[Rfam]
RNA sequence: AUAAAUGCUUUCUAGGGUUCCGUUUAAAGUAUUAUACACUUUAAAGACUGGUCCAAGAGAGAGCGUACAGCAACUGCUGUAUACACGGAGGGAAAAAAGCCCGGGAGAA
Numbered sequence: 001a002u003a004a005a006u007g008c009u010u011u012c013u014a015g016g017g018u019u020c021c022g023u024u025u026a027a028a029g030u031a032u033u034a035u036a037c038a039c040u041u042u043a044a045a046g047a048c049u050g051g052u053c054c055a056a057g058a059g060a061g062a063g064c065g066u067a068c069a070g071c072a073a074c075u076g077c078u079g080u081a082u083a084c085a086c087g088g089a090g091g092g093a094a095a096a097a098a099g100c101c102c103g104g105g106a107g108a109a
Stems, first nucleotide, its partner, number of pairs: 007064006015054002020051002022048001023045008065082007084104001086107001090102003
Rfam assigns this 109-nucleotide RNA sequence from Bacillus sp. 1NLA3E to the family "Guanidine-I riboswitch aptamer".